RNA: 6S / SsrS RNA
Organism: Roseibium hamelinense
RNA sequence: UGCUGGCUGCGCGACACGUUAGGAAACAUUAUCCCCGGGGCCUUAAGCAUUCCCUUGGGAGCUGUCCCUGCUUCGGACCGUGGUCUGUUGCACACGGCGCCCACCUACGUCGUAGGUAUCCCGGGAUUGCAAUUCCGACGGUCGGGCGGCUGCUGU
Numbered sequence: 001u002g003c004u005g006g007c008u009g010c011g012c013g014a015c016a017c018g019u020u021a022g023g024a025a026a027c028a029u030u031a032u033c034c035c036c037g038g039g040g041c042c043u044u045a046a047g048c049a050u051u052c053c054c055u056u057g058g059g060a061g062c063u064g065u066c067c068c069u070g071c072u073u074c075g076g077a078c079c080g081u082g083g084u085c086u087g088u089u090g091c092a093c094a095c096g097g098c099g100c101c102c103a104c105c106u107a108c109g110u111c112g113u114a115g116g117u118a119u120c121c122c123g124g125g126a127u128u129g130c131a132a133u134u135c136c137g138a139c140g141g142u143c144g145g146g147c148g149g150c151u152g153c154u155g156u
Stems, first nucleotide, its partner, number of pairs: 002154001004152007012144004017140003032126004037121003040117003057102003061098005070091002074087005